[Rfam]
RNA sequence: UUAUAAGCAAAAAAUAACUUUUUAGAUUCAUUGAAUAAAUGAUGUAUGUGAUAUAUACUAUAGGCCAAAUACAUCAGUUAUUUAAUGAGCCUAAAAAGUUGUUUUUUGCUUAUAA
Dot-bracket structure: .((((((.(((((.(((((((((((.((((((((((((.(((((....((.(...........).))....))))).)))))))))))).))))))))))).))))).)))))).
The record is a 115-nucleotide RNA from Medicago truncatula, which matches "MIR2593 microRNA precursor family" in Rfam. The family has 7 seed sequences and 1,262 matches in Rfam 15.1. Pairs were carried over by alignment from the consensus structure, which was predicted with RNAalifold. Gene Ontology terms of the family: RISC complex and miRNA-mediated post-transcriptional gene silencing.